Rfam assigns this 83-nucleotide RNA sequence from Gossypium raimondii to the family "MIR8703 microRNA precursor family".
RNA sequence: UAUUGAAAUUAGUAGUCUAAUUGGUAUAGCUGAACAAAAAAGAUUUUAUCAGCUGUAUCAAAUUUGGAUUAUUAAAAAGAUGA
Numbered sequence: 001u002a003u004u005g006a007a008a009u010u011a012g013u014a015g016u017c018u019a020a021u022u023g024g025u026a027u028a029g030c031u032g033a034a035c036a037a038a039a040a041a042g043a044u045u046u047u048a049u050c051a052g053c054u055g056u057a058u059c060a061a062a063u064u065u066g067g068a069u070u071a072u073u074a075a076a077a078a079g080a081u082g083a
Stems, first nucleotide, its partner, number of pairs: 001082004009075012021061007029053005037047003
Taxonomically the source falls in Gossypium (Eukaryota, Pentapetalae, Malvaceae, Malvoideae). Rfam's curators put it in the seed alignment.